[Rfam]
Annotation:
This 74-nucleotide RNA sequence from Cicer arietinum belongs to the Rfam family "Small nucleolar RNA SNORD18". A reference for the family is Prislei et al. (1993), "Two different snoRNAs are encoded in introns of amphibian and human L1 ribosomal protein genes", Nucleic Acids Res. Rfam 15.1 lists 2,622 matches to the family in 960 species. Gene Ontology terms of the family: nucleolus and RNA processing. The match comes from Rfam's covariance-model search (45 bits).

RNA sequence: GAGAUAUGAUGAGCUUAACAUUGGUCCGUGUUUCUGAAUCACUGUGCAGACAACUCUUACCAAUUUCUGAUCUC
Numbered sequence: 001g002a003g004a005u006a007u008g009a010u011g012a013g014c015u016u017a018a019c020a021u022u023g024g025u026c027c028g029u030g031u032u033u034c035u036g037a038a039u040c041a042c043u044g045u046g047c048a049g050a051c052a053a054c055u056c057u058u059a060c061c062a063a064u065u066u067c068u069g070a071u072c073u074c
Stems, first nucleotide, its partner, number of pairs: 001074004